[Rfam]
RNA sequence: CGUGGAUCGGUGAUGUUAUUGUUAACUGCGUUAUCUUUCUCGAACUUCUAAGUAAUGAGGAAAGCAUUACCUGCUGAGAUCCAAG
Dot-bracket structure: (.(((((.......................................................................))))).)

The record is an 85-nucleotide sequence from Triticum aestivum, which matches "Small nucleolar RNA snoR27" in Rfam. Its family is annotated with nucleolus and RNA processing in the Gene Ontology. For this family Rfam cites "Multiple snoRNA gene clusters from Arabidopsis" (Brown et al., RNA, 2001). The family is grouped with related families in Rfam's "snR68 clan".